About this RNA:
Rfam assigns this 365-nucleotide RNA from Paenibacillus solanacearum to the family "transfer-messenger RNA". The family is grouped with related families in Rfam's "tRNA clan".
RNA sequence: GGGGACGUUCUUGGAUUCGACGGGGAUAGUUCGAGCAUGGGUCGCGGGUAGCGGGGACGCGUCCGCUUCAUCAACGCUAAAGCCAAUUAAAUGGCAAACAACAACAAACCUACGCUUUCGCAGCUUAAUAACCUGUGAGCGUGCUCCUGCUUAGCAUCGCCCAUGUGCUAGGAUAGGGGCUCAACCUUAGUGGGAUACGCCGUUCGGUCUCCGCCUGGGGUCGGACGGAAGAAGACAAUCAGGCUGACCCAACGCGCAGCGGGUUACGGCGCGGCGCUCGGGUGACAUCAAAACCGUGACUACACCCGUAGAAGCCUGUGUGGCGUUAUCUUCGGACAGGGGUUCGACUCCCCUCGUCUCCAUAC
Numbered sequence: 001g002g003g004g005a006c007g008u009u010c011u012u013g014g015a016u017u018c019g020a021c022g023g024g025g026a027u028a029g030u031u032c033g034a035g036c037a038u039g040g041g042u043c044g045c046g047g048g049u050a051g052c053g054g055g056g057a058c059g060c061g062u063c064c065g066c067u068u069c070a071u072c073a074a075c076g077c078u079a080a081a082g083c084c085a086a087u088u089a090a091a092u093g094g095c096a097a098a099c100a101a102c103a104a105c106a107a108a109c110c111u112a113c114g115c116u117u118u119c120g121c122a123g124c125u126u127a128a129u130a131a132c133c134u135g136u137g138a139g140c141g142u143g144c145u146c147c148u149g150c151u152u153a154g155c156a157u158c159g160c161c162c163a164u165g166u167g168c169u170a171g172g173a174u175a176g177g178g179g180c181u182c183a184a185c186c187u188u189a190g191u192g193g194g195a196u197a198c199g200c201c202g203u204u205c206g207g208u209c210u211c212c213g214c215c216u217g218g219g220g221u222c223g224g225a226c227g228g229a230a231g232a233a234g235a236c237a238a239u240c241a242g243g244c245u246g247a248c249c250c251a252a253c254g255c256g257c258a259g260c261g262g263g264u265u266a267c268g269g270c271g272c273g274g275c276g277c278u279c280g281g282g283u284g285a286c287a288u289c290a291a292a293a294c295c296g297u298g299a300c301u302a303c304a305c306c307c308g309u310a311g312a313a314g315c316c317u318g319u320g321u322g323g324c325g326u327u328a329u330c331u332u333c334g335g336a337c338a339g340g341g342g343u344u345c346g347a348c349u350c351c352c353c354u355c356g357u358c359u360c361c362a363u364a365c
Base pairs, nucleotide, nucleotide: 001361002360003359004358005357006356007355021334022333023332024331025330026329027328028327029326030325035321036320037319038318039317040316041315042314045308046307047306048305049304050067051066052065053064054063059077060076061075062074117139118138119137120136121135122134123133143180144179145178146177147176148175150172151171152170153169154168155167156166157165160194161193162192163191164190200228201227202226203225204224205223206222207221208220213244214243215242216241217240247283248282249281250280252278259272260271261270263300264299265298266297268294338354339353340352341351342350
Dot-bracket structure: (((((((.............((((((((((....((((((((..((((((((((....[[[[)))))......]]]].......................................(((((((.........)))))))...((((((.((((((((..[[[[[))))))))..)))))).........]]]]].....(((((((((....[[[[[..)))))))))...........]]]]]..((((.(......(((.[[[[.[.))).....).))))..........]..]]]]...))))).....))))))))...))))))))))...(((((.......))))))))))))....

Bacterial tmRNA, also known as 10Sa RNA or SsrA, is named for its dual tRNA and mRNA-like properties. The family's RNA type in Rfam is non-coding RNA gene. Pairs were carried over by alignment from the consensus structure, which is taken from published work. For this family Rfam cites "Phylogenetic analysis of tmRNA secondary structure" (Williams and Bartel, RNA, 1996). A search with the family's covariance model found it, with a score of 188 bits.